[Rfam]
RNA sequence: ACCCGUUCCGAGGGGGGUCCCAAGAGGGGCUGAGAUUCGGCUGAUCCGCCGUGACCCUUGAACCUGAUCCGGGUCACGCCGGCGGAGGGACUGGAACCGCGCAUCGCG
Number, nucleotide and partner (000 for none) at each position: 001a000002c000003c000004c000005g000006u096007u095008c094009c093010g092011a058012g057013g056014g055015g000016g052017g030018u029019c028020c027021c026022a000023a000024g000025a000026g021027g020028g019029g018030c017031u000032g000033a000034g000035a000036u000037u000038c051039g050040g049041c048042u000043g000044a000045u000046c000047c000048g041049c040050c039051g038052u016053g000054a000055c014056c013057c012058u011059u000060g000061a000062a000063c088064c087065u086066g000067a000068u000069c082070c081071g080072g079073g000074u000075c000076a000077c000078g000079c072080c071081g070082g069083c000084g000085g000086a065087g064088g063089g000090a000091c000092u010093g009094g008095a007096a006097c000098c000099g000100c000101g000102c000103a000104u000105c000106g000107c000108g000
The family of this 108-nucleotide RNA sequence from Salinarimonas soli is "TPP riboswitch aptamer (THI element)". The match comes from Rfam's covariance-model search (62 bits). Vitamin B(1) in its active form thiamin pyrophosphate (TPP) is an essential coenzyme that is synthesised by coupling of pyrimidine and thiazole moieties in bacteria. NCBI's taxonomy places the organism under Bacteria, Pseudomonadati, Pseudomonadota, Hyphomicrobiales, Salinarimonas.